This 86-nucleotide RNA sequence from Dipodomys ordii belongs to the Rfam family "Small nucleolar RNA SNORD86". The family's consensus secondary structure was predicted with RNAalifold. About the family: U86 belongs to the C/D family of snoRNAs. A reference for the family is Filippini et al. (2001), "U86, a novel snoRNA with an unprecedented gene organization in yeast", Biochem Biophys Res Commun. A search with the family's covariance model found it, with a score of 93 bits.
[Rfam]
RNA sequence: GAUCACGGUGAUGGCUCUUCAGGGCUCCCUGACCUAUAGAGGCCUCUGCUAUAGGGGUGAUGGCCAGUCCUGGUGUCUGAGUGAUU
Numbered sequence: 001g002a003u004c005a006c007g008g009u010g011a012u013g014g015c016u017c018u019u020c021a022g023g024g025c026u027c028c029c030u031g032a033c034c035u036a037u038a039g040a041g042g043c044c045u046c047u048g049c050u051a052u053a054g055g056g057g058u059g060a061u062g063g064c065c066a067g068u069c070c071u072g073g074u075g076u077c078u079g080a081g082u083g084a085u086u
Stems, first nucleotide, its partner, number of pairs: 001086006010077003019073008027063002030060001032058004040052001041050003